RNA: Purine riboswitch aptamer
Organism: Metabacillus lacus
RNA sequence: AAAAAUUAAUAGAGUAUCCUUCAUAUAUCCUCGAUAAUACGGUUCGAGAGUCUCUACCGGGUUGCCGUUAACAACCUGACUAUGAAGGCAGGAUGUAUUUGU
Numbered sequence: 001a002a003a004a005a006u007u008a009a010u011a012g013a014g015u016a017u018c019c020u021u022c023a024u025a026u027a028u029c030c031u032c033g034a035u036a037a038u039a040c041g042g043u044u045c046g047a048g049a050g051u052c053u054c055u056a057c058c059g060g061g062u063u064g065c066c067g068u069u070a071a072c073a074a075c076c077u078g079a080c081u082a083u084g085a086a087g088g089c090a091g092g093a094u095g096u097a098u099u100u101g102u
Stems, first nucleotide, its partner, number of pairs: 018088008030048005058078007